[Rfam]
Shown here is a 54-nucleotide RNA sequence from Coregonus sp. 'balchen', a member of the family "UnaL2 LINE 3' element".
Pairs were carried over by alignment from the consensus structure, which is taken from published work.
RNA sequence: CACACUGAACUCUGUAAGUCGCUCUGGAUAAGAGCGUCUGCUAAAUGACUAAAA
Numbered sequence: 001c002a003c004a005c006u007g008a009a010c011u012c013u014g015u016a017a018g019u020c021g022c023u024c025u026g027g028a029u030a031a032g033a034g035c036g037u038c039u040g041c042u043a044a045a046u047g048a049c050u051a052a053a054a
Stems, first nucleotide, its partner, number of pairs: 013043001014041003020036006
Its family is annotated with transposition, RNA-mediated in the Gene Ontology. Rfam classes the family as a cis-regulatory element.